[Rfam]
Background: Rfam assigns this 132-nucleotide sequence from Castor canadensis to the family "Small nucleolar RNA SNORA51". Rfam describes the family as follows. ACA51 is a member of the H/ACA class of snoRNA that guide the sites of modification of uridines to pseudouridines. Rfam links the family to the GO terms RNA processing and nucleolus.

RNA sequence: AGCCUCCUGAUGCUUACCACAGGCUGUGUUCUUACAUUGACUGUGUAGAAGGAGGAGGCAAAGUAAAUCUACCCCAUAUACACCUCAGUCCAGGCCUUAUGCCUGAUCUUUACUGUGAAUGGGGAGACAACA
Numbered sequence: 001a002g003c004c005u006c007c008u009g010a011u012g013c014u015u016a017c018c019a020c021a022g023g024c025u026g027u028g029u030u031c032u033u034a035c036a037u038u039g040a041c042u043g044u045g046u047a048g049a050a051g052g053a054g055g056a057g058g059c060a061a062a063g064u065a066a067a068u069c070u071a072c073c074c075c076a077u078a079u080a081c082a083c084c085u086c087a088g089u090c091c092a093g094g095c096c097u098u099a100u101g102c103c104u105g106a107u108c109u110u111u112a113c114u115g116u117g118a119a120u121g122g123g124g125a126g127a128c129a130a131c132a
Stems, first nucleotide, its partner, number of pairs: 002059007020043003026037004072124006087109002091105005

The family's consensus secondary structure was predicted with PFOLD.
NCBI's taxonomy places the organism under Eukaryota, Teleostomi, Mammalia, Rodentia, Castor.